[Rfam]
RNA sequence: GGCACUUAUGUGUGUUUUUUUAUUUGUAACAAAGCCUUACAGACAGGUGCAAAUAAUAAAUCCUCUUUUGCAACCCAGAACUCAUUGUUGACUAUGUAUUUUGGGUGCAUGUAAAAAGGAAUAUG
Numbered sequence: 001g002g003c004a005c006u007u008a009u010g011u012g013u014g015u016u017u018u019u020u021u022a023u024u025u026g027u028a029a030c031a032a033a034g035c036c037u038u039a040c041a042g043a044c045a046g047g048u049g050c051a052a053a054u055a056a057u058a059a060a061u062c063c064u065c066u067u068u069u070g071c072a073a074c075c076c077a078g079a080a081c082u083c084a085u086u087g088u089u090g091a092c093u094a095u096g097u098a099u100u101u102u103g104g105g106u107g108c109a110u111g112u113a114a115a116a117a118g119g120a121a122u123a124u125g
Base pairs, nucleotide, nucleotide: 002050003049004048005047006046007045009043011041014036016034017033018032019031021029023028060122061121063119064118066116067115068114069113070112076103077102078101079100080099083096084095085094
Description
Shown here is a 125-nucleotide RNA sequence from Dipodomys ordii, a member of the family "Small nucleolar RNA SNORA40". Rfam's curators write: The snoRNA ACA 40 belongs to the H/ACA family of snoRNAs and guides the pseudouridylation of 28S rRNA subunit at position U4565. NB This family has a high threshold value to exclude a large number of closely related sequences that do not appear to have conserved H and ACA boxes, and may be pseudogenes. It is annotated as an H/ACA-box small nucleolar RNA. Its family is annotated with nucleolus and RNA processing in the Gene Ontology. Lineage of the source: Eukaryota > Gnathostomata > Boreoeutheria > Heteromyidae > Dipodomys. The family has 28 seed sequences and 2,550 matches in Rfam 15.1.